[Rfam]
RNA sequence: UUAAAUAAUAUUUAGGUAUCUCAUAUAAUCAAGGGAAUAAGGCCCAAAAGUUUCUACCCAAUGACCGUAAAUCAUUGGACUAUGAGUAAAGUAGCUGACCAC
Numbered sequence: 001u002u003a004a005a006u007a008a009u010a011u012u013u014a015g016g017u018a019u020c021u022c023a024u025a026u027a028a029u030c031a032a033g034g035g036a037a038u039a040a041g042g043c044c045c046a047a048a049a050g051u052u053u054c055u056a057c058c059c060a061a062u063g064a065c066c067g068u069a070a071a072u073c074a075u076u077g078g079a080c081u082a083u084g085a086g087u088a089a090a091g092u093a094g095c096u097g098a099c100c101a102c
Base pairs, nucleotide, nucleotide: 020086021085022084023083024082025081029049033045034044035043058078059077060076061075062074063073064072

The family of this 102-nucleotide RNA sequence from Peribacillus asahii is "Purine riboswitch aptamer". The base pairs follow the family's consensus structure, which is taken from published work. The organism belongs to Peribacillus, within Bacteria.